RNA sequence: GUCGCCGCCGCAGCUGAUUCGCUUGGUGCAGGUCGGGACCGGGCAGAAUCCUUAGGGAUCGGAACUGGAUCCUGCCUUGCAUCAACUGAAUCGGCUGCGGAGAGCGAAG
Numbered sequence: 001g002u003c004g005c006c007g008c009c010g011c012a013g014c015u016g017a018u019u020c021g022c023u024u025g026g027u028g029c030a031g032g033u034c035g036g037g038a039c040c041g042g043g044c045a046g047a048a049u050c051c052u053u054a055g056g057g058a059u060c061g062g063a064a065c066u067g068g069a070u071c072c073u074g075c076c077u078u079g080c081a082u083c084a085a086c087u088g089a090a091u092c093g094g095c096u097g098c099g100g101a102g103a104g105c106g107a108a109g
Stems, first nucleotide, its partner, number of pairs: 013095002017091004023085010034074005040068001
Dot-bracket structure: ............((..((((..((((((((((.(((((.(...........................).))))).))))))))))..))))..))..............